[Rfam]
RNA: Histone 3' UTR stem-loop
RNA sequence: CCAAAGGCUCUUUUCAGAGCCACCUCAAUAUGUCAACAAAGAGGAUU
Numbered sequence: 001c002c003a004a005a006g007g008c009u010c011u012u013u014u015c016a017g018a019g020c021c022a023c024c025u026c027a028a029u030a031u032g033u034c035a036a037c038a039a040a041g042a043g044g045a046u047u
Stems, first nucleotide, its partner, number of pairs: 006021006